Rfam assigns this 72-nucleotide sequence from Myotis davidii to the family "mir-9193 microRNA precursor family". Gene Ontology terms of the family: RISC complex and miRNA-mediated post-transcriptional gene silencing. Rfam 15.1 lists 6,008 matches to the family in 8 species. NCBI's taxonomy places the organism under Eukaryota, Opisthokonta, Vertebrata, Theria, Myotis. Pairs were carried over by alignment from the consensus structure, which was predicted with RNAalifold.
[Rfam]
RNA sequence: AAUGGGGCGGGGGUCCCUGAGCCCGGAUUGCGAGAGGGCACAGGCCAGGCCAAGGGCCCCCACCAGUGCACA
Number, nucleotide and partner (000 for none) at each position: 001a000002a000003u070004g069005g000006g067007g000008c000009g064010g061011g060012g059013g058014u000015c056016c055017c054018u053019g000020a000021g050022c049023c048024c000025g046026g045027a000028u043029u042030g041031c000032g039033a000034g000035a000036g000037g000038g000039c032040a000041c030042a029043g028044g000045c026046c025047a000048g023049g022050c021051c000052a000053a018054g017055g016056g015057c000058c013059c012060c011061c010062a000063c000064c009065a000066g000067u006068g000069c004070a003071c000072a000